A member of the RNA family "Small nucleolar RNA SNORA32" from Castor canadensis, 114 nucleotides long. The match comes from Rfam's covariance-model search (98 bits). The base pairs follow the family's consensus structure, which was predicted with RNAfold. Rfam describes the family as follows. ACA32 is a member of the H/ACA class of snoRNA that guide the sites of modification of uridines to pseudouridines. Rfam classes the family as an H/ACA-box small nucleolar RNA.
[Rfam]
RNA sequence: UGGUCAUUAACAAGGCUUUUAGAAUGCAGUUUCUCAUUUGCUGUGGACAUGACCACAAAAAAUUUUCUCACUAGGUUUUCUAUAUGCUACUUUGUUAGCAUAUAGGGGACACUA
Numbered sequence: 001u002g003g004u005c006a007u008u009a010a011c012a013a014g015g016c017u018u019u020u021a022g023a024a025u026g027c028a029g030u031u032u033c034u035c036a037u038u039u040g041c042u043g044u045g046g047a048c049a050u051g052a053c054c055a056c057a058a059a060a061a062a063u064u065u066u067c068u069c070a071c072u073a074g075g076u077u078u079u080c081u082a083u084a085u086g087c088u089a090c091u092u093u094g095u096u097a098g099c100a101u102a103u104a105g106g107g108g109a110c111a112c113u114a
Base pairs, nucleotide, nucleotide: 003053004052005051006050007049011045012044026041027040028039029038067107068106069105085100086099087098